[Rfam]
RNA sequence: CCGGAUGCGAAACUUUCGGUCCGGCAGGACCUGAGGGCACCGGCUCUCUUCUCCGGUGCGCCUCGUGCUCAAAUUGCUCGUUGGAGGAUUUGGAUAUGAGGA
Numbered sequence: 001c002c003g004g005a006u007g008c009g010a011a012a013c014u015u016u017c018g019g020u021c022c023g024g025c026a027g028g029a030c031c032u033g034a035g036g037g038c039a040c041c042g043g044c045u046c047u048c049u050u051c052u053c054c055g056g057u058g059c060g061c062c063u064c065g066u067g068c069u070c071a072a073a074u075u076g077c078u079c080g081u082u083g084g085a086g087g088a089u090u091u092g093g094a095u096a097u098g099a100g101g102a
Stems, first nucleotide, its partner, number of pairs: 001024006008018004035061001037059007062100006069093007077086003
Background
Repression of heat shock gene expression (ROSE) element: a 102-nucleotide sequence from Sphingomonas lycopersici. This family represents a 5' UTR cis-regulatory element found in heat shock mRNAs and is known as the ROSE (repression of heat shock gene expression) element. The ROSE element is a negative regulator of heat shock gene expression. The secondary structure is thought to be regulated by temperature. This regulation blocks access to the ribosome binding site under normal conditions. It scores 57 bits against the family's covariance model. NCBI's taxonomy places the organism under Bacteria, Pseudomonadati, Pseudomonadota, Sphingomonadaceae, Sphingomonas. Rfam links the family to the GO terms response to temperature stimulus and regulation of translation. On this family, see Balsiger et al., J Bacteriol 2004: "Replicon-specific regulation of small heat shock genes in Agrobacterium tumefaciens". Rfam classes the family as an RNA thermoregulator.